[Rfam]
RNA sequence: CAACUGGACUCUGUGUGGAUGAGUUAAGGAGGUUUCGUUUCAGCUCACAGAAGCGCCUUCUUAGCUAAGAAGAAAACGUUUCGCUUCUGUGAAGAGAAGCAAAACAUCCUCAACUCAACCAAACUCAGUCCAGUC
Numbered sequence: 001c002a003a004c005u006g007g008a009c010u011c012u013g014u015g016u017g018g019a020u021g022a023g024u025u026a027a028g029g030a031g032g033u034u035u036c037g038u039u040u041c042a043g044c045u046c047a048c049a050g051a052a053g054c055g056c057c058u059u060c061u062u063a064g065c066u067a068a069g070a071a072g073a074a075a076a077c078g079u080u081u082c083g084c085u086u087c088u089g090u091g092a093a094g095a096g097a098a099g100c101a102a103a104a105c106a107u108c109c110u111c112a113a114c115u116c117a118a119c120c121a122a123a124c125u126c127a128g129u130c131c132a133g134u135c
Stems, first nucleotide, its partner, number of pairs: 003134002006131005012121002015119002018116002020112004037054005043048001059072001061070002083100006
Description: This 135-nucleotide RNA sequence from Neogobius melanostomus belongs to the Rfam family "Nematode sRNA ceN72-3_ceN74-2". The family's RNA type in Rfam is small RNA. The source organism's lineage runs through Eukaryota, Opisthokonta, Neopterygii, Neogobiini and Neogobius. The family has 13 seed sequences and 521 matches in Rfam 15.1.